[Rfam]
RNA sequence: AGGCCUUGUGAUGAGAACAGAUUGUUAUAUCUCAUGAUGGUCAUCUGAGACAUUCAUAAUGUUGUCUAGAAUGAUGAUAAAACUCCAAUCUCUGAUGCCU
Numbered sequence: 001a002g003g004c005c006u007u008g009u010g011a012u013g014a015g016a017a018c019a020g021a022u023u024g025u026u027a028u029a030u031c032u033c034a035u036g037a038u039g040g041u042c043a044u045c046u047g048a049g050a051c052a053u054u055c056a057u058a059a060u061g062u063u064g065u066c067u068a069g070a071a072u073g074a075u076g077a078u079a080a081a082a083c084u085c086c087a088a089u090c091u092c093u094g095a096u097g098c099c100u
Base pairs, nucleotide, nucleotide: 001100002099003098004097051061052060053059
Rfam assigns this 100-nucleotide sequence from Phoenix dactylifera to the family "Small nucleolar RNA Z161/Z228". Its Rfam clan is "SNORD35 clan". Rfam classes the family as a C/D-box small nucleolar RNA. It scores 59 bits against the family's covariance model. For this family Rfam cites "The high diversity of snoRNAs in plants: identification and comparative study of 120 snoRNA genes from Oryza sativa" (Chen et al., Nucleic Acids Res, 2003). Rfam links the family to the GO terms nucleolus and RNA processing.